[Rfam]
RNA sequence: UAACAAAAGCAGAAGCACCCCGCUUCUCACCUGACCGACGCCAAGACGGCUGUUGGCAGGUUGUUACGGUUCGUCAAUGCGAGUGUAAGGACGUACUGCGCGGGUGCUUUGUGCAUCUGCGCUUUUUUUUGGGC
Numbered sequence: 001u002a003a004c005a006a007a008a009g010c011a012g013a014a015g016c017a018c019c020c021c022g023c024u025u026c027u028c029a030c031c032u033g034a035c036c037g038a039c040g041c042c043a044a045g046a047c048g049g050c051u052g053u054u055g056g057c058a059g060g061u062u063g064u065u066a067c068g069g070u071u072c073g074u075c076a077a078u079g080c081g082a083g084u085g086u087a088a089g090g091a092c093g094u095a096c097u098g099c100g101c102g103g104g105u106g107c108u109u110u111g112u113g114c115a116u117c118u119g120c121g122c123u124u125u126u127u128u129u130u131g132g133g134c
Base pairs, nucleotide, nucleotide: 011027012026013025014024015023016022029061030060031059037054038053039052040050041049099121100120101119102118103117104116105115106114107113
RNA: Ribosomal protein L20 leader
Organism: Geobacillus kaustophilus